[Rfam]
RNA sequence: AUAGGAUCCGGUAGGUAAGGCUACCGCGAGGGAUACGGACUGCUGCCGCGAAGUGGUGGAGACACCAUCAGAGGGUUUGAGCAGGUGCCAUCGAAAGCAAGGUGGCAUCUAAUGCAGUUUCACCGCCCCGCGAUGCUAAAGCUUGUAACGGUGCAGAACAGGG
Numbered sequence: 001a002u003a004g005g006a007u008c009c010g011g012u013a014g015g016u017a018a019g020g021c022u023a024c025c026g027c028g029a030g031g032g033a034u035a036c037g038g039a040c041u042g043c044u045g046c047c048g049c050g051a052a053g054u055g056g057u058g059g060a061g062a063c064a065c066c067a068u069c070a071g072a073g074g075g076u077u078u079g080a081g082c083a084g085g086u087g088c089c090a091u092c093g094a095a096a097g098c099a100a101g102g103u104g105g106c107a108u109c110u111a112a113u114g115c116a117g118u119u120u121c122a123c124c125g126c127c128c129c130g131c132g133a134u135g136c137u138a139a140a141g142c143u144u145g146u147a148a149c150g151g152u153g154c155a156g157a158a159c160a161g162g163g
Stems, first nucleotide, its partner, number of pairs: 005159001007157002010154001011149001012100001014143003019137003025132004030128003039118005045077001046074002049071001055066004084109004090103003

The record is a 163-nucleotide sequence from Firmicutes bacterium CAG:176, which matches "M-box riboswitch aptamer (ykoK leader)" in Rfam. Gene Ontology terms of the family: regulation of gene expression and response to magnesium ion. The literature on the family includes a 2004 paper in Proc Natl Acad Sci U S A by Barrick et al., "New RNA motifs suggest an expanded scope for riboswitches in bacterial genetic control". From the family's description: M-box riboswitch, also know as ykoK leader is described as a metaloregulatory RNA that sense divalent metals and function as a genetic control element of genes related to divalent metal transport in bacteria. The base pairs follow the family's consensus structure.